Record summary
Rfam assigns this 81-nucleotide sequence from Cephalotus follicularis to the family "Small nucleolar RNA Z221/R21b". A reference for the family is Chen et al. (2003), "The high diversity of snoRNAs in plants: identification and comparative study of 120 snoRNA genes from Oryza sativa", Nucleic Acids Res. Rfam links the family to the GO terms RNA processing and nucleolus. By type it is a C/D-box small nucleolar RNA.
[Rfam]
RNA sequence: GGGCAGUGAUGAAAAAAUUUGAUUAAGCUCCACUCUGAUUUUUCUGUACUGAUAAUUUUCUUACCCAUUUUUCCCAAGCCC
Numbered sequence: 001g002g003g004c005a006g007u008g009a010u011g012a013a014a015a016a017a018u019u020u021g022a023u024u025a026a027g028c029u030c031c032a033c034u035c036u037g038a039u040u041u042u043u044c045u046g047u048a049c050u051g052a053u054a055a056u057u058u059u060c061u062u063a064c065c066c067a068u069u070u071u072u073c074c075c076a077a078g079c080c081c
Stems, first nucleotide, its partner, number of pairs: 001081004